[Rfam]
RNA sequence: CAUCGCGAUGCUCCUCCCAAAAGGAGACAUCGUGAUGCGGAUACUUUCAAAGCGCCAGCUGAAGGAGUUGGUUCUAUACUCGCCUCAGCACAUCGCACGCCUUGAGAAGGCCGGGCAAUUCCCUAAGCGGGUCAAUCUCGGCCCGAACUGGGUGGGAUGGGUCGAGGACGAGGUUCUGGAUUGGCUCAAAGAACGCAUGGAGCGCCGCGAGCGGACCUGAGCGACCUCCUCUCGCAGGAGCAGGGUGGUCGGACGUGCACAGUUC
Numbered sequence: 001c002a003u004c005g006c007g008a009u010g011c012u013c014c015u016c017c018c019a020a021a022a023g024g025a026g027a028c029a030u031c032g033u034g035a036u037g038c039g040g041a042u043a044c045u046u047u048c049a050a051a052g053c054g055c056c057a058g059c060u061g062a063a064g065g066a067g068u069u070g071g072u073u074c075u076a077u078a079c080u081c082g083c084c085u086c087a088g089c090a091c092a093u094c095g096c097a098c099g100c101c102u103u104g105a106g107a108a109g110g111c112c113g114g115g116c117a118a119u120u121c122c123c124u125a126a127g128c129g130g131g132u133c134a135a136u137c138u139c140g141g142c143c144c145g146a147a148c149u150g151g152g153u154g155g156g157a158u159g160g161g162u163c164g165a166g167g168a169c170g171a172g173g174u175u176c177u178g179g180a181u182u183g184g185c186u187c188a189a190a191g192a193a194c195g196c197a198u199g200g201a202g203c204g205c206c207g208c209g210a211g212c213g214g215a216c217c218u219g220a221g222c223g224a225c226c227u228c229c230u231c232u233c234g235c236a237g238g239a240g241c242a243g244g245g246u247g248g249u250c251g252g253a254c255g256u257g258c259a260c261a262g263u264u265c
Stems, first nucleotide, its partner, number of pairs: 001037010012027002015024002055200003060195001065187010078174003081170002083167002086164001088162002091159004096154003101150001109143003113138003121131003204249005222243001226240005252264003

Ruegeria trans44 sRNA: a 265-nucleotide RNA sequence from Oceanicola granulosus. It scores 191 bits against the family's covariance model. Rfam classes the family as a small RNA.